Description: Metazoan signal recognition particle RNA: a 292-nucleotide RNA from Coccomyxa sp. Obi. It scores 116 bits against the family's covariance model. For this family Rfam cites "Structural and energetic analysis of RNA recognition by a universally conserved protein from the signal recognition particle" (Batey et al., J Mol Biol, 2001). The source organism's lineage runs through Eukaryota, core chlorophytes, Trebouxiophyceae, Coccomyxaceae and Coccomyxa.
[Rfam]
RNA sequence: GCUGGCGAUGGUAGCGCAUCGUUGUCACCCGAGUGGGAGCUGGUUCGCGAGAACGGCAGCCUAUCGCAAGCCGCCCACGCAUGUCUGUUGACGGCUGCGUCCCAUUCAAGGCUGGGGUCUGUGCCGGUUGCCGAUCGGAGGAUUGGCAGUCGAGGCAGUUAAAGGCAGGCGAACCGGCCCAGGGCGGAAACGCAGCAAGCUCAGUCUGCGCCCUAGUCGGUGAAGGGAGAACGUGCCAGAGGGCAGAGCGUGGAAUCUCGGCUGGUGGUUGGCCUGUGGAACCGCAACCUUU
Numbered sequence: 001g002c003u004g005g006c007g008a009u010g011g012u013a014g015c016g017c018a019u020c021g022u023u024g025u026c027a028c029c030c031g032a033g034u035g036g037g038a039g040c041u042g043g044u045u046c047g048c049g050a051g052a053a054c055g056g057c058a059g060c061c062u063a064u065c066g067c068a069a070g071c072c073g074c075c076c077a078c079g080c081a082u083g084u085c086u087g088u089u090g091a092c093g094g095c096u097g098c099g100u101c102c103c104a105u106u107c108a109a110g111g112c113u114g115g116g117g118u119c120u121g122u123g124c125c126g127g128u129u130g131c132c133g134a135u136c137g138g139a140g141g142a143u144u145g146g147c148a149g150u151c152g153a154g155g156c157a158g159u160u161a162a163a164g165g166c167a168g169g170c171g172a173a174c175c176g177g178c179c180c181a182g183g184g185c186g187g188a189a190a191c192g193c194a195g196c197a198a199g200c201u202c203a204g205u206c207u208g209c210g211c212c213c214u215a216g217u218c219g220g221u222g223a224a225g226g227g228a229g230a231a232c233g234u235g236c237c238a239g240a241g242g243g244c245a246g247a248g249c250g251u252g253g254a255a256u257c258u259c260g261g262c263u264g265g266u267g268g269u270u271g272g273c274c275u276g277u278g279g280a281a282c283c284g285c286a287a288c289c290u291u292u
Stems, first nucleotide, its partner, number of pairs: 001040003004023007028037003042290002045287001047285003054279001056277004060272002063269005069263005076252005082245005088239001093237003097234004101227002105224004110218009119158004125152012159163001165209006176201003184193003